Small nucleolar RNA Z278: a 112-nucleotide RNA from Punica granatum. The base pairs follow the family's consensus structure, which was predicted with PFOLD. The organism belongs to Punica, within Eukaryota. The match comes from Rfam's covariance-model search (36 bits).
[Rfam]
RNA sequence: GUCCUUGAUGAGGUCCACCUAAUUGAGGCAUAGACCGCCCCAUGUCCCUGUUCGCAGGGAGAACCUACUUGGGGUCCUAUGUUGUAAUGAAAUCACUGGAUACGCCUGAGAC
Numbered sequence: 001g002u003c004c005u006u007g008a009u010g011a012g013g014u015c016c017a018c019c020u021a022a023u024u025g026a027g028g029c030a031u032a033g034a035c036c037g038c039c040c041c042a043u044g045u046c047c048c049u050g051u052u053c054g055c056a057g058g059g060a061g062a063a064c065c066u067a068c069u070u071g072g073g074g075u076c077c078u079a080u081g082u083u084g085u086a087a088u089g090a091a092a093u094c095a096c097u098g099g100a101u102a103c104g105c106c107u108g109a110g111a112c
Base pairs, nucleotide, nucleotide: 001112002111003110046059047058048057049056050055